[Rfam]
This 192-nucleotide RNA from Peptostreptococcus anaerobius belongs to the Rfam family "6S / SsrS RNA". The base pairs follow the family's consensus structure, which is taken from published work. The source organism's lineage runs through Bacteria, Bacillati, Bacillota, Peptostreptococcales and Peptostreptococcus anaerobius. It scores 69 bits against the family's covariance model.

RNA sequence: ACUUAACUGAAGCAUACGUGAUGGCUAUAUAUAAGUUCAACCUACAUAUUGAAUACGGGAGACCGAGUUCUACUAUUAGUAUGGACGGCCUAGCUUAUUAUAACCUAGGAAACCAGAAAUUGUAUGACAGGUCACCCACCUGGGUGAAUCUCGGGUGUGAAUUUAAAUGGUCUACGGUGUUUUGGAUAUAUA
Numbered sequence: 001a002c003u004u005a006a007c008u009g010a011a012g013c014a015u016a017c018g019u020g021a022u023g024g025c026u027a028u029a030u031a032u033a034a035g036u037u038c039a040a041c042c043u044a045c046a047u048a049u050u051g052a053a054u055a056c057g058g059g060a061g062a063c064c065g066a067g068u069u070c071u072a073c074u075a076u077u078a079g080u081a082u083g084g085a086c087g088g089c090c091u092a093g094c095u096u097a098u099u100a101u102a103a104c105c106u107a108g109g110a111a112a113c114c115a116g117a118a119a120u121u122g123u124a125u126g127a128c129a130g131g132u133c134a135c136c137c138a139c140c141u142g143g144g145u146g147a148a149u150c151u152c153g154g155g156u157g158u159g160a161a162u163u164u165a166a167a168u169g170g171u172c173u174a175c176g177g178u179g180u181u182u183u184g185g186a187u188a189u190a191u192a
Base pairs, nucleotide, nucleotide: 004188005187007185008184009183010182011181012180013179014178015177017176018175019174032165033164034163035162037160038159039158040156041155042154057137058136059135061133062132063131064130068127071124072123073122077119083113089109090108091107092106093105